[Rfam]
Nucleotides: 068
Stems, first nucleotide, its partner, number of pairs: 002067003006063001009060004016053003021049009
Number, partner (000 for none) and nucleotide at each position: 001000c002067c003066g004065c005000u006063g007000u008000g009060a010059g011058u012057a013000u014000u015000u016053c017052a018051u019000c020000a021049g022048g023047u024046a025045c026044u027043g028042g029041u030000g031000u032000c033000a034000u035000a036000u037000u038000a039000u040000u041029a042028c043027c044026a045025g046024u047023a048022c049021c050000u051018g052017u053016g054000u055000c056000a057012u058011a059010u060009u061000c062000g063006c064000c065004g066003u067002g068000u